[Rfam]
Shown here is an 83-nucleotide RNA from Nakamurella multipartita, a member of the family "Actino-pnp RNA". By type it is a cis-regulatory element. The base pairs follow the family's consensus structure, which is taken from published work.
RNA sequence: GCCGGUCCUCGGUAGUGGCCACCGGAACACGACCCCGCCCCGCGGGCGGGCCGUGGGUCCGGCGGCUUCGAUCGAAGGCCGGC
Numbered sequence: 001g002c003c004g005g006u007c008c009u010c011g012g013u014a015g016u017g018g019c020c021a022c023c024g025g026a027a028c029a030c031g032a033c034c035c036c037g038c039c040c041c042g043c044g045g046g047c048g049g050g051c052c053g054u055g056g057g058u059c060c061g062g063c064g065g066c067u068u069c070g071a072u073c074g075a076a077g078g079c080c081g082g083c
Stems, first nucleotide, its partner, number of pairs: 001083007009075005017067004022062005028057001